[Rfam]
RNA sequence: GCCAGCUGGGAGCCGUGCCGGGACCUCGGUGAACAAAGAGAACACCAUCCCUCCGAGGACCGGACGCAUUCCGUGGUCUGUCCGUGCGGAUACGCACGGGUACGCCAUCUGCGACAUGCGCGAGCAUGCCGCGGGAAGGACGGAGCAGGAACCGCCCGUCCAACGGACGGUCCGGGUCGCCCGGGCACGGAGAAGGACAACGCACGGUGAUGCCGUGCCCACCGCAAUACGAAGGGGUGCUGAACAGGCUCCCCCGAAACCCGCAAACCAGGCCGCAUGAGAACGCGGUGCUGUAAGGCGGGAACCUCACCCACGGUGGGCGGCGCACACGGCGCCCCGGAAACGGGACGUAUAAACGGCAAGCCGGUCCAAGUAGCCAAAGCGUGCGUACUUCAAACAUUUGAUAAGUGGUCCAUGUGAGAACAACAGGGAAACUUUCUUAGCUGAAUGGCUGGUGAACGAUGCGGGUAUGAAAAAUCCCCGUCAGAGCAAGGCAUCCUCCGGGGUGCGGCUCCCAUAGUCGAGGGCGACGGCCCGAAGGCUCAGGUCGGAGUCCUCUGUGGCGGAACGUCCGCGUCCAUGCACCGGGUAGGGCGAAGGUCCCCCGGCACGGCUCCCAGCUG
Numbered sequence: 001g002c003c004a005g006c007u008g009g010g011a012g013c014c015g016u017g018c019c020g021g022g023a024c025c026u027c028g029g030u031g032a033a034c035a036a037a038g039a040g041a042a043c044a045c046c047a048u049c050c051c052u053c054c055g056a057g058g059a060c061c062g063g064a065c066g067c068a069u070u071c072c073g074u075g076g077u078c079u080g081u082c083c084g085u086g087c088g089g090a091u092a093c094g095c096a097c098g099g100g101u102a103c104g105c106c107a108u109c110u111g112c113g114a115c116a117u118g119c120g121c122g123a124g125c126a127u128g129c130c131g132c133g134g135g136a137a138g139g140a141c142g143g144a145g146c147a148g149g150a151a152c153c154g155c156c157c158g159u160c161c162a163a164c165g166g167a168c169g170g171u172c173c174g175g176g177u178c179g180c181c182c183g184g185g186c187a188c189g190g191a192g193a194a195g196g197a198c199a200a201c202g203c204a205c206g207g208u209g210a211u212g213c214c215g216u217g218c219c220c221a222c223c224g225c226a227a228u229a230c231g232a233a234g235g236g237g238u239g240c241u242g243a244a245c246a247g248g249c250u251c252c253c254c255c256g257a258a259a260c261c262c263g264c265a266a267a268c269c270a271g272g273c274c275g276c277a278u279g280a281g282a283a284c285g286c287g288g289u290g291c292u293g294u295a296a297g298g299c300g301g302g303a304a305c306c307u308c309a310c311c312c313a314c315g316g317u318g319g320g321c322g323g324c325g326c327a328c329a330c331g332g333c334g335c336c337c338c339g340g341a342a343a344c345g346g347g348a349c350g351u352a353u354a355a356a357c358g359g360c361a362a363g364c365c366g367g368u369c370c371a372a373g374u375a376g377c378c379a380a381a382g383c384g385u386g387c388g389u390a391c392u393u394c395a396a397a398c399a400u401u402u403g404a405u406a407a408g409u410g411g412u413c414c415a416u417g418u419g420a421g422a423a424c425a426a427c428a429g430g431g432a433a434a435c436u437u438u439c440u441u442a443g444c445u446g447a448a449u450g451g452c453u454g455g456u457g458a459a460c461g462a463u464g465c466g467g468g469u470a471u472g473a474a475a476a477a478u479c480c481c482c483g484u485c486a487g488a489g490c491a492a493g494g495c496a497u498c499c500u501c502c503g504g505g506g507u508g509c510g511g512c513u514c515c516c517a518u519a520g521u522c523g524a525g526g527g528c529g530a531c532g533g534c535c536c537g538a539a540g541g542c543u544c545a546g547g548u549c550g551g552a553g554u555c556c557u558c559u560g561u562g563g564c565g566g567a568a569c570g571u572c573c574g575c576g577u578c579c580a581u582g583c584a585c586c587g588g589g590u591a592g593g594g595c596g597a598a599g600g601u602c603c604c605c606c607g608g609c610a611c612g613g614c615u616c617c618c619a620g621c622u623g
Stems, first nucleotide, its partner, number of pairs: 007620001009618002012615001014613001019608001021606002025057005037052002040049002060176001061174005074107004079102001081100008108135006115128005138161005184586001196573001201570001205366004211361006218320006237251001239249002260302005269293003272289003278309004324388005334349001336347003370461001376456004444546003467482002486559003489509003510556002513553001515551002519548001520543001522540001525536004592603004
RNA: ROOL RNA